A member of the RNA family "Mason-Pfizer monkey virus packaging signal" from Cavia porcellus, 276 nucleotides long.
[Rfam]
RNA sequence: UGGCACCCCAAUGUGGGACUCAAGAACAGGGGACUUCGUGAAGGACUCUGUUCAUGAGCCCAAAGUAGAAAAAAGAAAAGGAAAUAGAGGACCUGGUGAUGUGGGAGCCUGCCAUGCCGCUGAACCUCGGUAAGUGAACAGCGAUUAUGGGACAAGAAAUGAGCCAGCAUGAGAGUUUUGUUGAAAGUUUAGGAAAGGCUUUAAAGGCACGAGGAGUAAAGAUUAAAAUUAAGCAGUUAUGUCAAUAUUUUGAUUUUAUAAAGAAAGUUUGUCCUU
Numbered sequence: 001u002g003g004c005a006c007c008c009c010a011a012u013g014u015g016g017g018a019c020u021c022a023a024g025a026a027c028a029g030g031g032g033a034c035u036u037c038g039u040g041a042a043g044g045a046c047u048c049u050g051u052u053c054a055u056g057a058g059c060c061c062a063a064a065g066u067a068g069a070a071a072a073a074a075g076a077a078a079a080g081g082a083a084a085u086a087g088a089g090g091a092c093c094u095g096g097u098g099a100u101g102u103g104g105g106a107g108c109c110u111g112c113c114a115u116g117c118c119g120c121u122g123a124a125c126c127u128c129g130g131u132a133a134g135u136g137a138a139c140a141g142c143g144a145u146u147a148u149g150g151g152a153c154a155a156g157a158a159a160u161g162a163g164c165c166a167g168c169a170u171g172a173g174a175g176u177u178u179u180g181u182u183g184a185a186a187g188u189u190u191a192g193g194a195a196a197g198g199c200u201u202u203a204a205a206g207g208c209a210c211g212a213g214g215a216g217u218a219a220a221g222a223u224u225a226a227a228a229u230u231a232a233g234c235a236g237u238u239a240u241g242u243c244a245a246u247a248u249u250u251u252g253a254u255u256u257u258a259u260a261a262a263g264a265a266a267g268u269u270u271g272u273c274c275u276u
Stems, first nucleotide, its partner, number of pairs: 006032003013027002037044001086127001089126002095121003100116005135154002139151001142149002160203003163199003210252005216246002220238002223235001261276003265272001
Dot-bracket structure: .....(((....((...........))..)))....(......).........................................(..((....(((..(((((.......)))))..)))...))).......((..(..((....)).).)).....((((((...............................))).)))......(((((.((..((.(...........).))......)).)))))........(((.(......).)))
Source information
NCBI's taxonomy places the organism under Eukaryota, Eumetazoa, Bilateria, Theria, Cavia. Pairs were carried over by alignment from the consensus structure, which was predicted with PFOLD. The family's RNA type in Rfam is cis-regulatory element. The match comes from Rfam's covariance-model search (111 bits). A reference for the family is Mustafa et al. (2004), "Mutational analysis of the predicted secondary RNA structure of the Mason-Pfizer monkey virus packaging signal", Virus Res.